drz-agam-1 ribozyme: a 79-nucleotide sequence from Hermetia illucens. The base pairs follow the family's consensus structure, which is taken from published work. It scores 44 bits against the family's covariance model. The source organism's lineage runs through Eukaryota, Ecdysozoa, Diptera, Stratiomyomorpha and Hermetia.
RNA sequence: UACUAUCAAACCCUAUCUCCACCUCCACGUGGUGAUCGCUGGGAGUUCUUUCUUCAUGAAAAACUGCAGAGGGAGAAGG
Numbered sequence: 001u002a003c004u005a006u007c008a009a010a011c012c013c014u015a016u017c018u019c020c021a022c023c024u025c026c027a028c029g030u031g032g033u034g035a036u037c038g039c040u041g042g043g044a045g046u047u048c049u050u051u052c053u054u055c056a057u058g059a060a061a062a063a064c065u066g067c068a069g070a071g072g073g074a075g076a077a078g079g
Base pairs, nucleotide, nucleotide: 012079013078014077016075018073019072020071021033022032023031045065047063049061050060051059053058